[Rfam]
RNA sequence: UUUUUAUUCCGAGUUUGCGUUGCAAACUCGUUUAUUUAUUACGCUUUCUCACCUAACGUUUACGAAAGCGCUGAAAAAACUUUUUCGGGAAUUGACAUUCCCUGCAAAAGUUUUUAUAGGA
Numbered sequence: 001u002u003u004u005u006a007u008u009c010c011g012a013g014u015u016u017g018c019g020u021u022g023c024a025a026a027c028u029c030g031u032u033u034a035u036u037u038a039u040u041a042c043g044c045u046u047u048c049u050c051a052c053c054u055a056a057c058g059u060u061u062a063c064g065a066a067a068g069c070g071c072u073g074a075a076a077a078a079a080c081u082u083u084u085u086c087g088g089g090a091a092u093u094g095a096c097a098u099u100c101c102c103u104g105c106a107a108a109a110g111u112u113u114u115u116a117u118a119g120g121a
Base pairs, nucleotide, nucleotide: 011029012028013027014026015025016024017023018022042070043069044068045067046066047065048064075115076114077113078112079111080110081109082108083107084106087102088101089100090099091098092097
The record is a 121-nucleotide sequence from Treponema maltophilum, which matches "TD-1 RNA" in Rfam. The family's RNA type in Rfam is cis-regulatory element.